[Rfam]
RNA: mir-8517 microRNA precursor family
RNA sequence: UUACAGGAACGUAUUAGCUGAUGAACUGUUUUGUCGGAAUAGAGAACAAUUUGUUCUUUGACAGAGAGGGACAAACAGUUCAAUAGCUAAAACGUCCUGUAAC
Numbered sequence: 001u002u003a004c005a006g007g008a009a010c011g012u013a014u015u016a017g018c019u020g021a022u023g024a025a026c027u028g029u030u031u032u033g034u035c036g037g038a039a040u041a042g043a044g045a046a047c048a049a050u051u052u053g054u055u056c057u058u059u060g061a062c063a064g065a066g067a068g069g070g071a072c073a074a075a076c077a078g079u080u081c082a083a084u085a086g087c088u089a090a091a092a093c094g095u096c097c098u099g100u101a102a103c
Stems, first nucleotide, its partner, number of pairs: 001102006012092001014090007022082008030065007045055004